The record is a 202-nucleotide RNA sequence from Molossus molossus, which matches "Small nucleolar RNA SNORA73 family" in Rfam. It scores 141 bits against the family's covariance model. Clan: snR30-U17 clan. U17 (SNORA73A and SNORA73B) also known as E1 belongs to the H/ACA class of small nucleolar RNAs (snoRNAs). Rfam links the family to the GO terms nucleolus and RNA processing. Lineage of the source: Eukaryota > Deuterostomia > Sarcopterygii > Molossidae > Molossus.

RNA sequence: CCAACGCAGACACCCUGGGGGUCACUCUCCCUGGGCUCUGUCCCGCUGGUGUCGGGGAGCACGGGGCUCUGCUCGAUGAUGUGCAGUCCUUUUCCACAUGGUUGGAGAGAAAAUCGGGCCUUGAGUCUCAGCCUUCAUAUUCCUACAGCUUCUCAGAGUCCCGUGGACAAUGACUAAGGAGAAAACCAUGCAGAAAAUAUCU
Number, nucleotide and partner (000 for none) at each position: 001c105002c104003a103004a102005c101006g000007c000008a000009g042010a041011c040012a039013c035014c034015c033016u000017g028018g027019g026020g025021g000022u000023c000024a000025c020026u019027c018028u017029c000030c000031c000032u000033g015034g014035g013036c000037u000038c000039u012040g011041u010042c009043c000044c000045g000046c000047u096048g095049g094050u000051g000052u000053c000054g000055g090056g089057g088058a087059g084060c000061a082062c081063g080064g077065g000066g000067c000068u000069c000070u000071g000072c000073u000074c000075g000076a000077u064078g000079a000080u063081g062082u061083g000084c059085a000086g000087u058088c057089c056090u055091u000092u000093u000094c049095c048096a047097c000098a000099u000100g000101g005102u004103u003104g002105g001106a000107g000108a000109g000110a000111a000112a000113a000114u000115c000116g000117g000118g000119c000120c000121u000122u000123g000124a000125g000126u000127c000128u000129c000130a000131g000132c000133c193134u192135u000136c190137a189138u188139a000140u000141u000142c000143c000144u000145a000146c000147a000148g000149c181150u180151u179152c178153u177154c000155a000156g000157a000158g168159u167160c166161c165162c000163g000164u000165g161166g160167a159168c158169a000170a000171u000172g000173a000174c000175u000176a000177a153178g152179g151180a150181g149182a000183a000184a000185a000186c000187c000188a138189u137190g136191c000192a134193g133194a000195a000196a000197a000198u000199a000200u000201c000202u000